A member of the RNA family "Eukaryotic small subunit ribosomal RNA" from Schmidtea mediterranea, 511 nucleotides of a longer RNA. Lineage of the source: Eukaryota > Bilateria > Rhabditophora > Continenticola > Schmidtea. The base pairs follow the family's consensus structure, which is taken from published work. The family has 90 seed sequences and 75,755 matches in Rfam 15.1. It is one of the family's seed sequences.
RNA sequence: GACGGGAAGGGCACCACAAGGGAGUGAGCCCUGCGGGCUUUAAUUGGACUCAACACCGGGAAAUCUCACCCCGGUCCGGGACACUGUGAGGGAUUGACAGAUUGAUAGCUCUUUUCUUGAUUUCGGUGGGGUGGUGGUGCAUGGCCGUUUCUUAGUUUGGUGGGAGCGAUUUUGUCAGGGUUAAUUACCGAUAACGAAACGAGACUAUGACAUUACUAAAUAGUGAAUUUAUAUUCAAUUGUAAAUUCUCACUUUCUUAGAAGAAAUAAAUAGCGUUUAGCUAUAUGAAAUAGAGCAAUAACAGGUGGUGAGAUGCCCUUAGAAGUCCGGGUCCGCACCCGCGCUACAAUGGCAGUACUAACAAGUUUUCCUAACUAGAAAUAGUCGGGUAAUCUCUUGAAACACUGUCGUAUCAGGGAUUGUGAAUUGAAAUUAUUUCACAUGAACGAGGAAUUCCUAGUAAGCGCAAGUCACUAGCUUGCGCUCCUUACGUCCCUGCCCUUUGUACACA
Numbered sequence: 001g002a003c004g005g006g007a008a009g010g011g012c013a014c015c016a017c018a019a020g021g022g023a024g025u026g027a028g029c030c031c032u033g034c035g036g037g038c039u040u041u042a043a044u045u046g047g048a049c050u051c052a053a054c055a056c057c058g059g060g061a062a063a064u065c066u067c068a069c070c071c072c073g074g075u076c077c078g079g080g081a082c083a084c085u086g087u088g089a090g091g092g093a094u095u096g097a098c099a100g101a102u103u104g105a106u107a108g109c110u111c112u113u114u115u116c117u118u119g120a121u122u123u124c125g126g127u128g129g130g131g132u133g134g135u136g137g138u139g140c141a142u143g144g145c146c147g148u149u150u151c152u153u154a155g156u157u158u159g160g161u162g163g164g165a166g167c168g169a170u171u172u173u174g175u176c177a178g179g180g181u182u183a184a185u186u187a188c189c190g191a192u193a194a195c196g197a198a199a200c201g202a203g204a205c206u207a208u209g210a211c212a213u214u215a216c217u218a219a220a221u222a223g224u225g226a227a228u229u230u231a232u233a234u235u236c237a238a239u240u241g242u243a244a245a246u247u248c249u250c251a252c253u254u255u256c257u258u259a260g261a262a263g264a265a266a267u268a269a270a271u272a273g274c275g276u277u278u279a280g281c282u283a284u285a286u287g288a289a290a291u292a293g294a295g296c297a298a299u300a301a302c303a304g305g306u307g308g309u310g311a312g313a314u315g316c317c318c319u320u321a322g323a324a325g326u327c328c329g330g331g332u333c334c335g336c337a338c339c340c341g342c343g344c345u346a347c348a349a350u351g352g353c354a355g356u357a358c359u360a361a362c363a364a365g366u367u368u369u370c371c372u373a374a375c376u377a378g379a380a381a382u383a384g385u386c387g388g389g390u391a392a393u394c395u396c397u398u399g400a401a402a403c404a405c406u407g408u409c410g411u412a413u414c415a416g417g418g419a420u421u422g423u424g425a426a427u428u429g430a431a432a433u434u435a436u437u438u439c440a441c442a443u444g445a446a447c448g449a450g451g452a453a454u455u456c457c458u459a460g461u462a463a464g465c466g467c468a469a470g471u472c473a474c475u476a477g478c479u480u481g482c483g484c485u486c487c488u489u490a491c492g493u494c495c496c497u498g499c500c501c502u503u504u505g506u507a508c509a510c511a
Stems, first nucleotide, its partner, number of pairs: 001508001002506003007503007016493002021457005026347001028345001030343001032341002035339002037336002044059004070331005076325001082128005096116002099112003133319002136317004142313001144306003147302003155200002158197001160195002162173003178189002206294001208292002211263001213262002216260004222253004267287002270284005351409006364395002370389002374385004416447001421442006463485008